[Rfam]
This 107-nucleotide RNA sequence from Streptococcus zalophi belongs to the Rfam family "Glycine riboswitch aptamer". The source organism's lineage runs through Bacteria, Bacilli, Lactobacillales, Streptococcaceae and Streptococcus.
RNA sequence: UGAUGGACUUCUGGAGAGACUUGUUGAGAUGAUUGUCAUCUUAGAACAGGCGCCGAAGGGGCAAGGCUAACGCUCAAUCUCUCAGGCAAAAGGACAGAAAAAACCUA
Numbered sequence: 001u002g003a004u005g006g007a008c009u010u011c012u013g014g015a016g017a018g019a020c021u022u023g024u025u026g027a028g029a030u031g032a033u034u035g036u037c038a039u040c041u042u043a044g045a046a047c048a049g050g051c052g053c054c055g056a057a058g059g060g061g062c063a064a065g066g067c068u069a070a071c072g073c074u075c076a077a078u079c080u081c082u083c084a085g086g087c088a089a090a091a092g093g094a095c096a097g098a099a100a101a102a103a104c105c106u107a
Base pairs, nucleotide, nucleotide: 009099010098011097012096013095020050021049022048023047024046025045052087053086054085055083056082059081060080061079065075066074